[Rfam]
RNA sequence: AUUGCUGUAAUGCGGGUGAUAAUUCAGAAAAAUAAAACCGCGCCCUUGGUCAAUCGUGUGAAACAGCGGGUUCCAAUCGAACAUCGACAGUUUGUGGGUGGGCAUGGUGUUGGCGACAAACAUCUUACCGCUCGCGAUCAUAUUGGCGCGCUG
Dot-bracket structure: .(((.(.(..(..((.......))..)..).)))).((.(.(.(....).)..).))......(((((.((((.....))))...(.((((.((...(..((.(.(((.(((....)))..))).).))...).....)).)))).).)))))
RNA: Ruegeria cis2 sRNA